[Rfam]
RNA sequence: GUUCCCAUUUGACUACAACAUUUUCUAGAUUUUAGUGGCUAUGCUUGUGGGAUAGAUUCAAGGUGCCAUGAUCUGAAGAGGGAAGGAUUUUCAGUGUCCUCCCUCCAUAUGAAAUGGCUGAACACAAAAUU
Numbered sequence: 001g002u003u004c005c006c007a008u009u010u011g012a013c014u015a016c017a018a019c020a021u022u023u024u025c026u027a028g029a030u031u032u033u034a035g036u037g038g039c040u041a042u043g044c045u046u047g048u049g050g051g052a053u054a055g056a057u058u059c060a061a062g063g064u065g066c067c068a069u070g071a072u073c074u075g076a077a078g079a080g081g082g083a084a085g086g087a088u089u090u091u092c093a094g095u096g097u098c099c100u101c102c103c104u105c106c107a108u109a110u111g112a113a114a115u116g117g118c119u120g121a122a123c124a125c126a127a128a129a130u131u
Stems, first nucleotide, its partner, number of pairs: 004051004016038001018036002065118004085104002
Rfam assigns this 131-nucleotide RNA from Jaculus jaculus to the family "Small nucleolar RNA SNORA29". The family is grouped with related families in Rfam's "SNORA20 clan". The literature on the family includes a 2001 paper in EMBO J by Huttenhofer et al., "RNomics: an experimental approach that identifies 201 candidates for novel, small, non-messenger RNAs in mouse". The match comes from Rfam's covariance-model search (130 bits). ACA29 is a member of the H/ACA class of snoRNA that guide the sites of modification of uridines to pseudouridines.